[Rfam]
RNA sequence: UAUAUUUGCCGCUCGAAAGAGACACUUUCGGUUACAUAACAAUUAUUUACAAAAAUAUUAGCAUG
Numbered sequence: 001u002a003u004a005u006u007u008g009c010c011g012c013u014c015g016a017a018a019g020a021g022a023c024a025c026u027u028u029c030g031g032u033u034a035c036a037u038a039a040c041a042a043u044u045a046u047u048u049a050c051a052a053a054a055a056u057a058u059u060a061g062c063a064u065g
Stems, first nucleotide, its partner, number of pairs: 014030006

S15-Flavobacteria ribosomal protein leader: a 65-nucleotide RNA from Flavivirga eckloniae. The match comes from Rfam's covariance-model search (69 bits). It is annotated as a cis-regulatory leader. The base pairs follow the family's consensus structure, which is taken from published work. The literature on the family includes a 2020 paper in BMC Microbiol by Eckert and Weinberg, "Discovery of 20 novel ribosomal leader candidates in bacteria and archaea".